[Rfam]
RNA: Eukaryotic large subunit ribosomal RNA, nucleotides 1460 to 1896
RNA sequence: AGUAGUAGCAAAUAUUCAAGUGAGAACCUUGAAGACUGAAGUAGAGAAAGGUUCUAUGGUAACAGCAGUUGGACAUGGGUCAGUCGAUCCUAAGAGAUAGGGAAGCUCCAUUUCAAAGUGCACAAUUUUUUGUGCUGCCUAUCAAAAGGGAAUCCAGUUAAAAUUCCAGAACCAGGAUGUGGAUCUUUAAUAGCAACAUAACUGAACUUGGAGACAUUGGCAGGAGCCCUGGGAAGAGUUAUCUUUUCUCCUUAACAGUCUACCACCCUGAAAUCAGAUUGUCUGGAGCUAGGGUUCAAUGACUGGUAGAGCACAACACCUCUGUUGUGUCUGGUGCAUUCCUGACAAUUCUUGAAAAUCCAAGGGAAUGAAUAAUUUUCACACCUGGUCGUACUCAUAACCGCAGCAGGUCUCCAAGGUGAACAGCCUCUAGUUGA
Numbered sequence: 001a002g003u004a005g006u007a008g009c010a011a012a013u014a015u016u017c018a019a020g021u022g023a024g025a026a027c028c029u030u031g032a033a034g035a036c037u038g039a040a041g042u043a044g045a046g047a048a049a050g051g052u053u054c055u056a057u058g059g060u061a062a063c064a065g066c067a068g069u070u071g072g073a074c075a076u077g078g079g080u081c082a083g084u085c086g087a088u089c090c091u092a093a094g095a096g097a098u099a100g101g102g103a104a105g106c107u108c109c110a111u112u113u114c115a116a117a118g119u120g121c122a123c124a125a126u127u128u129u130u131u132g133u134g135c136u137g138c139c140u141a142u143c144a145a146a147a148g149g150g151a152a153u154c155c156a157g158u159u160a161a162a163a164u165u166c167c168a169g170a171a172c173c174a175g176g177a178u179g180u181g182g183a184u185c186u187u188u189a190a191u192a193g194c195a196a197c198a199u200a201a202c203u204g205a206a207c208u209u210g211g212a213g214a215c216a217u218u219g220g221c222a223g224g225a226g227c228c229c230u231g232g233g234a235a236g237a238g239u240u241a242u243c244u245u246u247u248c249u250c251c252u253u254a255a256c257a258g259u260c261u262a263c264c265a266c267c268c269u270g271a272a273a274u275c276a277g278a279u280u281g282u283c284u285g286g287a288g289c290u291a292g293g294g295u296u297c298a299a300u301g302a303c304u305g306g307u308a309g310a311g312c313a314c315a316a317c318a319c320c321u322c323u324g325u326u327g328u329g330u331c332u333g334g335u336g337c338a339u340u341c342c343u344g345a346c347a348a349u350u351c352u353u354g355a356a357a358a359u360c361c362a363a364g365g366g367a368a369u370g371a372a373u374a375a376u377u378u379u380c381a382c383a384c385c386u387g388g389u390c391g392u393a394c395u396c397a398u399a400a401c402c403g404c405a406g407c408a409g410g411u412c413u414c415c416a417a418g419g420u421g422a423a424c425a426g427c428c429u430c431u432a433g434u435u436g437a
Base pairs, nucleotide, nucleotide: 015033016032017031018030019029020028034435035434036433037432044414045413046412049395050394054078055077056076057075058074063071064070085391086390087389089149090148094143095142096112097111098110100109101108102107120135121134153170154169157166173387174386175385176384178383179382180381181380182379183377190199191198207364208363209362210361211360212359216349217348218347219346221344222343223342224341225340226339229334230333231332232252233251235249236248237247256305257304258303259302260301265295266294267293268292269291270290274286275285276284277283312329313328314327315326316325317324318323401410402409417429418428419427420426